Description:
A member of the RNA family "Plastid-rps18 3UTR RNA", 57 nucleotides long. The family's RNA type in Rfam is cis-regulatory element. It is one of the family's seed sequences. Pairs were carried over by alignment from the consensus structure, which was predicted with LocARNA. The literature on the family includes a 2023 paper in Plant Commun by Richter et al., "Retrograde signaling in plants: A critical review focusing on the GUN pathway and beyond". Plastid rps18 is a non-coding RNA (ncRNA) present in plastids.

RNA sequence: CGCAAGUAUUUUACGAUUAAGAAGCAACUGCCUCUUGUACAGACUGUGCAUUAAUAU
Dot-bracket structure: .................(((((.((....)).)))))....................